[Rfam]
RNA sequence: CAGUUAAAAAGUCCGUAGUCGUGGAGACGGAAAGAGAGGCGGAGCCUCUUUGAGAUGCUCUGGAGAAGCCAACAGGGGGCACAGUACACCAGGGCGAGAGAUGAAAUGCCAAGACCCCUGGUGGACUGAGCGAGGCGAAAGCGGUGCUCUUGUGGGGUGUUCGGUGAUCAAGGACGAAAGCUUGGAGGGAUCGAAAGUGAUUGAUACCGCUGUAGUUCCAGCAGUAAAAGAUGCCGACAUGCUCUGUGGCAACACGGGGCAGGGAGAAAUCUUAGAGUUCGGGCUCUGGGGAUAGUAUGCUCGCAAGGGUGAAAAUUAAAGAAAU
Numbered sequence: 001c002a003g004u005u006a007a008a009a010a011g012u013c014c015g016u017a018g019u020c021g022u023g024g025a026g027a028c029g030g031a032a033a034g035a036g037a038g039g040c041g042g043a044g045c046c047u048c049u050u051u052g053a054g055a056u057g058c059u060c061u062g063g064a065g066a067a068g069c070c071a072a073c074a075g076g077g078g079g080c081a082c083a084g085u086a087c088a089c090c091a092g093g094g095c096g097a098g099a100g101a102u103g104a105a106a107u108g109c110c111a112a113g114a115c116c117c118c119u120g121g122u123g124g125a126c127u128g129a130g131c132g133a134g135g136c137g138a139a140a141g142c143g144g145u146g147c148u149c150u151u152g153u154g155g156g157g158u159g160u161u162c163g164g165u166g167a168u169c170a171a172g173g174a175c176g177a178a179a180g181c182u183u184g185g186a187g188g189g190a191u192c193g194a195a196a197g198u199g200a201u202u203g204a205u206a207c208c209g210c211u212g213u214a215g216u217u218c219c220a221g222c223a224g225u226a227a228a229a230g231a232u233g234c235c236g237a238c239a240u241g242c243u244c245u246g247u248g249g250c251a252a253c254a255c256g257g258g259g260c261a262g263g264g265a266g267a268a269a270u271c272u273u274a275g276a277g278u279u280c281g282g283g284c285u286c287u288g289g290g291g292a293u294a295g296u297a298u299g300c301u302c303g304c305a306a307g308g309g310u311g312a313a314a315a316u317u318a319a320a321g322a323a324a325u
Base pairs, nucleotide, nucleotide: 001288002287003286011175012174013173014172018168019167020166065162066161067160068158069156070155072153073152076150077149078148079147080146081145082144083127084126087123088122089121090120091119092118093117094116098109100107135142136141180222181221183220184219185218186217192215196211197210198209199208233284234283235282238275240261241260242259243258244257245256246255247254248253264271265270290317291316299310300309301308302307
Rfam assigns this 325-nucleotide part of an RNA from Endoreticulatus sp. CHW-2008 Austria to the family "Microsporidia small subunit ribosomal RNA". It is one of the family's seed sequences. Taxonomically the source falls in Endoreticulatus (Eukaryota, Opisthokonta, Fungi, Microsporidia). The family has 46 seed sequences and 1,035 matches in Rfam 15.1. For this family Rfam cites "Crystal structure of the ribosome at 5.5 A resolution" (Yusupov et al., Science, 2001). The family is grouped with related families in Rfam's "SSU clan".